RNA: FMN riboswitch aptamer (RFN element)
Organism: Planococcus massiliensis
RNA sequence: CAAAUUCUUCGGGGCAAGGUGAAAUUCCUUACCGGCGGUGAGCAGGAAACUGUAAGUCCGUGACCCGAUCUUUAAGCAAAUGAAAGUUUCAGGCAUCCCCGCCUGGGCUUUUGCAUCGUCCAGUUCCGGCAUUCGCCGGUUCCGGACAGGCACAUUUGCUGGCAGUAAAGAGCGGUGGAGCUGGUGAAAAUCCGGCACCGACAGUGAAAGUCUGGAUGGGAGAAGAAUUUG
Number, nucleotide and partner (000 for none) at each position: 001c000002a000003a229004a228005u227006u226007c225008u224009u223010c222011g000012g000013g000014g000015c000016a000017a029018g028019g027020u000021g000022a000023a000024a000025u000026u000027c019028c018029u017030u000031a211032c210033c200034g199035g061036c060037g059038g058039u000040g000041a000042g000043c000044a000045g000046g000047a000048a000049a000050c000051u000052g000053u000054a000055a000056g198057u197058c038059c037060g036061u035062g000063a000064c000065c175066c174067g000068a000069u000070c000071u000072u000073u000074a000075a000076g000077c000078a000079a000080a000081u000082g000083a000084a000085a000086g000087u000088u000089u000090c000091a000092g000093g000094c000095a000096u000097c000098c000099c000100c000101g000102c000103c000104u000105g000106g000107g000108c000109u000110u000111u000112u000113g000114c000115a000116u000117c000118g000119u000120c000121c000122a000123g000124u000125u000126c000127c000128g000129g000130c000131a000132u000133u000134c000135g000136c000137c000138g000139g000140u000141u000142c000143c000144g000145g000146a000147c000148a000149g000150g000151c000152a000153c000154a000155u000156u000157u000158g000159c000160u000161g000162g000163c000164a000165g000166u000167a000168a000169a000170g000171a000172g000173c000174g066175g065176u000177g000178g000179a000180g196181c195182u194183g193184g192185u000186g000187a000188a000189a000190a000191u000192c184193c183194g182195g181196c180197a057198c056199c034200g033201a000202c214203a213204g212205u000206g000207a000208a000209a000210g032211u031212c204213u203214g202215g000216a000217u000218g000219g000220g000221a000222g010223a009224a008225g007226a006227a005228u004229u003230u000231g000